[Rfam]
RNA sequence: GAACCGAUUACGGGAGAGACCGGUUGCAAAAAAACCGGCGCCGAAGGAGCAACCGCCCCGGAAACUCUCAGGCUGAAGGACCGAAAUCGGCUC
Numbered sequence: 001g002a003a004c005c006g007a008u009u010a011c012g013g014g015a016g017a018g019a020c021c022g023g024u025u026g027c028a029a030a031a032a033a034a035c036c037g038g039c040g041c042c043g044a045a046g047g048a049g050c051a052a053c054c055g056c057c058c059c060g061g062a063a064a065c066u067c068u069c070a071g072g073c074u075g076a077a078g079g080a081c082c083g084a085a086a087u088c089g090g091c092u093c
Base pairs, nucleotide, nucleotide: 006088007087008086009085011083012082013081020038021037022036023035040073041072042071043069044068047067048066049065053061054060